[Rfam]
RNA sequence: UGGAUAGUAUCGUAUAUACGAGCUAUACCACUUUAAAUAUUCAUAAUUUUCACAAAAAUCAAUAUGGUUAUUAAUCUGCUCUGAGCCUAUGCUAUGGACCGAGACAGAAGG
Numbered sequence: 001u002g003g004a005u006a007g008u009a010u011c012g013u014a015u016a017u018a019c020g021a022g023c024u025a026u027a028c029c030a031c032u033u034u035a036a037a038u039a040u041u042c043a044u045a046a047u048u049u050u051c052a053c054a055a056a057a058a059u060c061a062a063u064a065u066g067g068u069u070a071u072u073a074a075u076c077u078g079c080u081c082u083g084a085g086c087c088u089a090u091g092c093u094a095u096g097g098a099c100c101g102a103g104a105c106a107g108a109a110g111g
Stems, first nucleotide, its partner, number of pairs: 001030003004026005010021002076107003079103003083099001086097002